[Rfam]
RNA sequence: UGGCUGUGACGACAAGGAUAUUUUGUAGAUUCUGAUUCUUAAUGCCAUUUAAGGACCAAAUCGUGACGACCUUAUUUGUGCGUGUCUGAGCUGA
Numbered sequence: 001u002g003g004c005u006g007u008g009a010c011g012a013c014a015a016g017g018a019u020a021u022u023u024u025g026u027a028g029a030u031u032c033u034g035a036u037u038c039u040u041a042a043u044g045c046c047a048u049u050u051a052a053g054g055a056c057c058a059a060a061u062c063g064u065g066a067c068g069a070c071c072u073u074a075u076u077u078g079u080g081c082g083u084g085u086c087u088g089a090g091c092u093g094a
Base pairs, nucleotide, nucleotide: 001093002092003091004090
Annotation:
Shown here is a 94-nucleotide RNA from Digitaria exilis, a member of the family "small nucleolar RNA snoR126". For this family Rfam cites "Mining small RNA sequencing data: a new approach to identify small nucleolar RNAs in Arabidopsis" (Chen and Wu, Nucleic Acids Res, 2009). Rfam links the family to the GO terms RNA processing and nucleolus.